[Rfam]
Description
Archaeal large subunit ribosomal RNA: a 97-nucleotide part of an RNA from Halococcoides cellulosivorans.

RNA sequence: GACGGGGCACAAAAGGCCUUGUGGAGAACGACAGAGGGGCGACCCUCCAGUAGGACCCACGAGGAGCCGGUGUUCCGUCGUACGUUUUGAAAAACGA
Numbered sequence: 001g002a003c004g005g006g007g008c009a010c011a012a013a014a015g016g017c018c019u020u021g022u023g024g025a026g027a028a029c030g031a032c033a034g035a036g037g038g039g040c041g042a043c044c045c046u047c048c049a050g051u052a053g054g055a056c057c058c059a060c061g062a063g064g065a066g067c068c069g070g071u072g073u074u075c076c077g078u079c080g081u082a083c084g085u086u087u088u089g090a091a092a093a094a095c096g097a
Stems, first nucleotide, its partner, number of pairs: 001079010015068002019062006029053001034047005083096003
Rfam 15.1 lists 2,955 matches to the family in 1,139 species.
The base pairs follow the family's consensus structure, which is taken from published work.